[Rfam]
RNA: Selenocysteine insertion sequence 1
Organism: Aquarana catesbeiana
RNA sequence: UGCACUUUAGUGAAGACUACACAGAAAACCUUCAGAAGGCUUGUGGAUGUCUGAUGUCCUGUGUA
Numbered sequence: 001u002g003c004a005c006u007u008u009a010g011u012g013a014a015g016a017c018u019a020c021a022c023a024g025a026a027a028a029c030c031u032u033c034a035g036a037a038g039g040c041u042u043g044u045g046g047a048u049g050u051c052u053g054a055u056g057u058c059c060u061g062u063g064u065a
Stems, first nucleotide, its partner, number of pairs: 001065005015051003018047001020045005030038003